[Rfam]
Shown here is a 76-nucleotide RNA, a member of the family "S15-Methanomicrobia ribosomal protein leader".
Pairs were carried over by alignment from the consensus structure, which is taken from published work.
On this family, see Eckert and Weinberg, BMC Microbiol 2020: "Discovery of 20 novel ribosomal leader candidates in bacteria and archaea".
RNA sequence: CGCACUUUUUGAGGUGCUGGCAGAUGCUAAUCCGACGUGACAAUCAGGUCACUGCCUGUAAAGGCUUUGGGAUUGC
Numbered sequence: 001c002g003c004a005c006u007u008u009u010u011g012a013g014g015u016g017c018u019g020g021c022a023g024a025u026g027c028u029a030a031u032c033c034g035a036c037g038u039g040a041c042a043a044u045c046a047g048g049u050c051a052c053u054g055c056c057u058g059u060a061a062a063g064g065c066u067u068u069g070g071g072a073u074u075g076c
Stems, first nucleotide, its partner, number of pairs: 002017005026076002029073001032071002037052005054065004